[Rfam]
RNA: Selenocysteine transfer RNA
Organism: Patiria miniata
RNA sequence: GCCCGGAUGAGCCUCACUGGUGUGGGGUGCAGACUUCAAAUCUGUAGCCGAUUAGCGUCGGAGUGGUUCAAUUCCACCUUUCGGGC
Numbered sequence: 001g002c003c004c005g006g007a008u009g010a011g012c013c014u015c016a017c018u019g020g021u022g023u024g025g026g027g028u029g030c031a032g033a034c035u036u037c038a039a040a041u042c043u044g045u046a047g048c049c050g051a052u053u054a055g056c057g058u059c060g061g062a063g064u065g066g067u068u069c070a071a072u073u074c075c076a077c078c079u080u081u082c083g084g085g086c
Stems, first nucleotide, its partner, number of pairs: 001086007009078001012027006028046006048061005063077004